[Rfam]
RNA: 7SK RNA
RNA sequence: GGAUGUGAGGGCAGUCUGGCUGCAACAUCUGUCGCCCCACUUGUGACCAGGCUGAUUGAGCUGACCUGGCUGGCUUGGUGGGUAUCCACUUCCUCCUCAGUGCUCCAUGUGCAUCCCUACCAAAGGUGCACACUGGUUGAAGAGGGUGAUCUUCCCCAUGGAGAUGGUGCUGUUCAUCAGUCAAGGGUAUACAGAAGCCCUACCCCCUGCUAGAACCACCCUCCAAACAAGCUGAAGGUUUAUGGCUAUUUGUGCUGUAACUGAAGUUUCCCUAAUGAUUUUGCAGUGACCUGCCAGAGAUCUAAAGAAAAUAUUUUCUGAGUGG
Numbered sequence: 001g002g003a004u005g006u007g008a009g010g011g012c013a014g015u016c017u018g019g020c021u022g023c024a025a026c027a028u029c030u031g032u033c034g035c036c037c038c039a040c041u042u043g044u045g046a047c048c049a050g051g052c053u054g055a056u057u058g059a060g061c062u063g064a065c066c067u068g069g070c071u072g073g074c075u076u077g078g079u080g081g082g083u084a085u086c087c088a089c090u091u092c093c094u095c096c097u098c099a100g101u102g103c104u105c106c107a108u109g110u111g112c113a114u115c116c117c118u119a120c121c122a123a124a125g126g127u128g129c130a131c132a133c134u135g136g137u138u139g140a141a142g143a144g145g146g147u148g149a150u151c152u153u154c155c156c157c158a159u160g161g162a163g164a165u166g167g168u169g170c171u172g173u174u175c176a177u178c179a180g181u182c183a184a185g186g187g188u189a190u191a192c193a194g195a196a197g198c199c200c201u202a203c204c205c206c207c208u209g210c211u212a213g214a215a216c217c218a219c220c221c222u223c224c225a226a227a228c229a230a231g232c233u234g235a236a237g238g239u240u241u242a243u244g245g246c247u248a249u250u251u252g253u254g255c256u257g258u259a260a261c262u263g264a265a266g267u268u269u270c271c272c273u274a275a276u277g278a279u280u281u282u283g284c285a286g287u288g289a290c291c292u293g294c295c296a297g298a299g300a301u302c303u304a305a306a307g308a309a310a311a312u313a314u315u316u317u318c319u320g321a322g323u324g325g
Stems, first nucleotide, its partner, number of pairs: 001106003006099006013091002018089001025085001027083007035073002037069003043065002047060001114167002117163002120136002123134001125133001137158001139157001144155003196268003202262001207257001209255002218249001223245003227241001291325003295320005300314002303311001